The family of this 176-nucleotide RNA from Exiguobacterium artemiae is "Lysine riboswitch aptamer".
Its family is annotated with lysine biosynthetic process in the Gene Ontology.
A search with the family's covariance model found it, with a score of 111 bits.
[Rfam]
RNA sequence: CGAUGAGGUAGAGGCGCGGUCUUGAUUAGUAUUUGGUCUGAGGAUGACAACAAAGACGAUCGAAGAAAGGUGAGACCGCCGAAGCAUCGUCAUGUGUCAGACAUGACGAUGCUGGUCGAACCGGGAAAGACCCGUUCGAUUGCCAUACGCGUAUUGUAUGGAGCACUCCAAUUCGG
Numbered sequence: 001c002g003a004u005g006a007g008g009u010a011g012a013g014g015c016g017c018g019g020u021c022u023u024g025a026u027u028a029g030u031a032u033u034u035g036g037u038c039u040g041a042g043g044a045u046g047a048c049a050a051c052a053a054a055g056a057c058g059a060u061c062g063a064a065g066a067a068a069g070g071u072g073a074g075a076c077c078g079c080c081g082a083a084g085c086a087u088c089g090u091c092a093u094g095u096g097u098c099a100g101a102c103a104u105g106a107c108g109a110u111g112c113u114g115g116u117c118g119a120a121c122c123g124g125g126a127a128a129g130a131c132c133c134g135u136u137c138g139a140u141u142g143c144c145a146u147a148c149g150c151g152u153a154u155u156g157u158a159u160g161g162a163g164c165a166c167u168c169c170a171a172u173u174c175g176g
Base pairs, nucleotide, nucleotide: 008169010167011166016079017078018077019076020075021074022073023072024071032064033063034062035061036060037059038058083113084112085111086110087109088108089107090106091105092104093103094102114141115140116139117138118137119136120135122134123133124132125131143161144160145159146158147157148156149155